[Rfam]
The family of this 128-nucleotide RNA from Carlito syrichta is "Small nucleolar RNA SNORA11". U107 (SNORA11) is a member of the H/ACA class of snoRNAs that guide the sites of modification of uridines to pseudouridines. Taxonomically the source falls in Carlito (Eukaryota, Amniota, Mammalia, Euarchontoglires). On this family, see Gu et al., Nucleic Acids Res 2005: "A novel experimental approach for systematic identification of box H/ACA snoRNAs from eukaryotes". The match comes from Rfam's covariance-model search (124 bits). It is annotated as an H/ACA-box small nucleolar RNA.
RNA sequence: GGGGUGUGCUCAGAGCAGGUGGCCUGAAGAAUGGCUCCUCUGUUUACAGCACAACCAACAGGAACCUGAGGUCAUUGUGAUGAGGGGCACGACACCAUGGCCUCUCUAUAAACAAAUGCCCUACACGU
Dot-bracket structure: .((.((((....(((((((.((((........))).).)))))))....)))).)).............(((...(((..((.(((.((.(....).)).))).....)).)))...)))........